[Rfam]
RNA sequence: GGCCUGUCCGUGGGCCUAAAAAGACGGAACGGCAGGAGCUGGCAACCUCCUAAAAUGCCUA
Numbered sequence: 001g002g003c004c005u006g007u008c009c010g011u012g013g014g015c016c017u018a019a020a021a022a023g024a025c026g027g028a029a030c031g032g033c034a035g036g037a038g039c040u041g042g043c044a045a046c047c048u049c050c051u052a053a054a055a056u057g058c059c060u061a
Base pairs, nucleotide, nucleotide: 001016002015003014004013008027009026010025011024035050036049037048038047
Dot-bracket structure: ((((...[[[[.)))).......]]]].......((((........))))...........
The record is a 61-nucleotide sequence, which matches "GP20-b RNA" in Rfam. It is annotated as a cis-regulatory element. The sequence is in the family's curated seed alignment.